[Rfam]
RNA sequence: GGUCAAUGAUGGUAUGGCAUGUAUUAACUGAAUGCAAAUUUGAUGUAAGUUUUAAAAUAAUACUGAGACCUU
Numbered sequence: 001g002g003u004c005a006a007u008g009a010u011g012g013u014a015u016g017g018c019a020u021g022u023a024u025u026a027a028c029u030g031a032a033u034g035c036a037a038a039u040u041u042g043a044u045g046u047a048a049g050u051u052u053u054a055a056a057a058u059a060a061u062a063c064u065g066a067g068a069c070c071u072u
Stems, first nucleotide, its partner, number of pairs: 001070004

Shown here is a 72-nucleotide RNA sequence from Dipodomys ordii, a member of the family "Small nucleolar RNA SNORD45". A search with the family's covariance model found it, with a score of 86 bits. A reference for the family is Huttenhofer et al. (2001), "RNomics: an experimental approach that identifies 201 candidates for novel, small, non-messenger RNAs in mouse", EMBO J. Its family is annotated with nucleolus and RNA processing in the Gene Ontology. The family's RNA type in Rfam is C/D-box small nucleolar RNA. The organism belongs to Dipodomys, within Eukaryota.